PyrR binding site: a 115-nucleotide RNA from Effusibacillus dendaii. Rfam links the family to the GO terms pyrimidine nucleobase biosynthetic process and pyrimidine nucleobase transport. A search with the family's covariance model found it, with a score of 58 bits. Lineage of the source: Bacteria > Bacillota > Caryophanales > Alicyclobacillaceae > Effusibacillus. Rfam's curators write: This family represents the PyrR binding site and terminator structure. This RNA structure is found upstream of a variety of genes involved in pyrimidine biosynthesis and transport. The alignment also includes a portion of the antiterminator structure.
Nucleotides: 115
Stems, first nucleotide, its partner, number of pairs: 003037006013030002016027003045078002049074005057066002081110001084107010
Number, partner (000 for none) and nucleotide at each position: 001000a002000a003037a004036a005035c006034c007033u008032u009000u010000a011000a012000g013030c014029c015000a016027g017026u018025c019000c020000c021000g022000u023000g024000a025018g026017g027016c028000a029014g030013g031000c032008a033007a034006g035005g036004u037003u038000c039000c040000g041000g042000u043000u044000u045078u046077g047000g048000u049074g050073a051072a052071u053070c054000g055000g056000c057066c058065g059000u060000a061000u062000u063000g064000g065058c066057g067000c068000a069000a070053g071052a072051u073050u074049u075000c076000a077046c078045g079000c080000c081110g082000u083000c084107g085106g086105g087104u088103u089102c090101c091100u092099u093098g094000c095000u096000g097000g098093c099092a100091g101090g102089g103088a104087a105086c106085c107084c108000a109000u110081u111000u112000u113000u114000u115000u